[Rfam]
RNA: Ribosomal protein L10 leader
Organism: Oceanobacillus indicireducens
RNA sequence: UAAAAAGAAUACGUUAUACCGUAGACAGCAGGUGCGAUUUAUCGCUUAAUUUCCCGCCGAGGUGUUUUAUAAAUAUCGAUCCAAGUACGUUUAUUUGGGUAGUGAUAUAAAGCUCUCAUGUCUAACUGAGAGCUUUUUUUAUAGACUU
Number, nucleotide and partner (000 for none) at each position: 001u000002a000003a000004a000005a000006a000007g000008a000009a000010u000011a000012c000013g000014u000015u000016a000017u000018a000019c000020c000021g000022u000023a000024g000025a000026c000027a000028g057029c056030a000031g054032g053033u000034g045035c044036g043037a000038u000039u000040u000041a000042u000043c036044g035045c034046u000047u000048a000049a000050u000051u000052u000053c032054c031055c000056g029057c028058c000059g000060a000061g000062g000063u000064g000065u000066u000067u000068u000069a000070u000071a000072a000073a000074u000075a000076u000077c000078g000079a000080u000081c000082c000083a000084a000085g000086u000087a000088c000089g000090u000091u000092u000093a000094u000095u000096u000097g000098g000099g000100u000101a000102g000103u000104g000105a000106u000107a000108u000109a000110a000111a000112g133113c132114u131115c130116u129117c128118a127119u000120g000121u000122c000123u000124a000125a000126c000127u118128g117129a116130g115131a114132g113133c112134u000135u000136u000137u000138u000139u000140u000141a000142u000143a000144g000145a000146c000147u000148u000